[Rfam]
RNA: Nitrogen stress-induced RNA 1
Organism: Geitlerinema sp. PCC 7407
RNA sequence: UGGUAGAUGCACCCUGAUUAAUUUCCCCAGCCCACCCGGACUGGGGAUUUUUUUU
Number, nucleotide and partner (000 for none) at each position: 001u000002g013003g012004u011005a000006g000007a000008u000009g000010c000011a004012c003013c002014c000015u000016g000017a000018u000019u000020a000021a000022u000023u000024u047025c046026c045027c044028c043029a042030g041031c000032c039033c038034a000035c000036c000037c000038g033039g032040a000041c030042u029043g028044g027045g026046g025047a024048u000049u000050u000051u000052u000053u000054u000055u000